Selenocysteine transfer RNA: a 92-nucleotide sequence from Asanoa hainanensis. The family is grouped with related families in Rfam's "tRNA clan". A search with the family's covariance model found it, with a score of 70 bits.
RNA sequence: GGAGGCGAGUGGGCGCCUGGUGGUCCUCGCGGUCUUCAAAACCGGCGUGAUCCGGCAUCCGGGUCAGGCGGGUUCGAUUCCCGUACGCCUCC
Numbered sequence: 001g002g003a004g005g006c007g008a009g010u011g012g013g014c015g016c017c018u019g020g021u022g023g024u025c026c027u028c029g030c031g032g033u034c035u036u037c038a039a040a041a042c043c044g045g046c047g048u049g050a051u052c053c054g055g056c057a058u059c060c061g062g063g064u065c066a067g068g069c070g071g072g073u074u075c076g077a078u079u080c081c082c083g084u085a086c087g088c089c090u091c092c
Base pairs, nucleotide, nucleotide: 001092002091003090004089005088006087007086009084012027013026015024016023017022030044031043032042033041048066049065050064051063052062069083070082071081072080
The organism belongs to Asanoa, within Bacteria.